[Rfam]
RNA sequence: UAUCACAGAACUCAGCUCAUUACGAUUUAAUUUUUCGCCUUUUACUAAAGAUUACCGUGAGCUGGGUUUUUCAAUGUGAAUUAUUAAAAUUUUUGCAGGAUUCUUUUGAAUCCU
Numbered sequence: 001u002a003u004c005a006c007a008g009a010a011c012u013c014a015g016c017u018c019a020u021u022a023c024g025a026u027u028u029a030a031u032u033u034u035u036c037g038c039c040u041u042u043u044a045c046u047a048a049a050g051a052u053u054a055c056c057g058u059g060a061g062c063u064g065g066g067u068u069u070u071u072c073a074a075u076g077u078g079a080a081u082u083a084u085u086a087a088a089a090u091u092u093u094u095g096c097a098g099g100a101u102u103c104u105u106u107u108g109a110a111u112c113c114u
Stems, first nucleotide, its partner, number of pairs: 003079004009068011028054008097114007

U5 spliceosomal RNA: a 114-nucleotide sequence from Tetrahymena thermophila. It is annotated as a spliceosomal small nuclear RNA. Rfam's curators put it in the seed alignment. NCBI's taxonomy places the organism under Eukaryota, Alveolata, Oligohymenophorea, Tetrahymenidae, Tetrahymena.